Rfam assigns this 199-nucleotide RNA to the family "Manganese Mn2+ riboswitch aptamer (yybP-ykoY)". Rfam's curators write: This RNA was originally discovered in E. coli during a large scale screen and was named SraF. The family was later found to exist upstream of related families of protein genes in many bacteria, including the the yybP and ykoK genes in B. subtilis. Its family is annotated with manganese ion binding in the Gene Ontology. It scores 51 bits against the family's covariance model.
[Rfam]
RNA sequence: ACUACAAUCGCGGAAGUCUCUGGGGAGUAGCCCGCCCGGCGCCAUGCGCGCACGGGGGCAUGCGUCAACAAACUUGGGCCCUCGCGGCCCAUGGCGCACGCGGUUCAGCCGGACUGGGCGAGACCAUUGACUGUGCACCGAUCCCAAGGCCGGAGUCGGGGCGCAGUCAAUGCUGUCCACCUAUCCGGCCGGAUAACCC
Number, nucleotide and partner (000 for none) at each position: 001a000002c000003u000004a000005c000006a000007a000008u000009c000010g000011c000012g000013g000014a000015a000016g000017u000018c000019u000020c000021u000022g000023g000024g000025g000026a000027g000028u000029a000030g000031c000032c000033c000034g000035c056036c055037c054038g000039g000040c000041g000042c000043c000044a000045u000046g000047c000048g000049c000050g000051c000052a000053c000054g037055g036056g035057g000058g101059c100060a000061u098062g097063c096064g095065u094066c093067a092068a000069c000070a000071a000072a000073c000074u000075u091076g090077g089078g088079c087080c000081c000082u000083c000084g000085c000086g000087g079088c078089c077090c076091a075092u067093g066094g065095c064096g063097c062098a061099c000100g059101c058102g198103g197104u196105u195106c000107a000108g000109c000110c000111g000112g000113a000114c000115u000116g000117g000118g000119c000120g000121a000122g000123a000124c000125c000126a000127u000128u000129g000130a000131c000132u000133g000134u000135g000136c000137a000138c000139c000140g000141a000142u000143c000144c000145c000146a000147a000148g000149g000150c000151c000152g000153g000154a000155g000156u000157c000158g000159g000160g000161g000162c000163g000164c000165a000166g000167u000168c000169a000170a000171u000172g000173c000174u000175g000176u000177c000178c000179a000180c000181c000182u000183a000184u000185c000186c000187g000188g000189c000190c000191g000192g000193a000194u000195a105196a104197c103198c102199c000